[Rfam]
Rfam assigns this 96-nucleotide sequence from Hoeflea prorocentri to the family "Glycine riboswitch aptamer". The match comes from Rfam's covariance-model search (45 bits). Lineage of the source: Bacteria > Alphaproteobacteria > Hyphomicrobiales > Rhizobiaceae > Hoeflea.
RNA sequence: CACUCUGGAAAGUCGGGACAGCCGUCCCGCGCCGAAGGUGUAAGCGUCGCCGACAGAGUUCCGGUUGCGCGAGUCUCUCAGGCUCCAGACAGAGGG
Numbered sequence: 001c002a003c004u005c006u007g008g009a010a011a012g013u014c015g016g017g018a019c020a021g022c023c024g025u026c027c028c029g030c031g032c033c034g035a036a037g038g039u040g041u042a043a044g045c046g047u048c049g050c051c052g053a054c055a056g057a058g059u060u061c062c063g064g065u066u067g068c069g070c071g072a073g074u075c076u077c078u079c080a081g082g083c084u085c086c087a088g089a090c091a092g093a094g095g096g
Stems, first nucleotide, its partner, number of pairs: 001096001003094005014029004031083003034079002038077001040075001044070004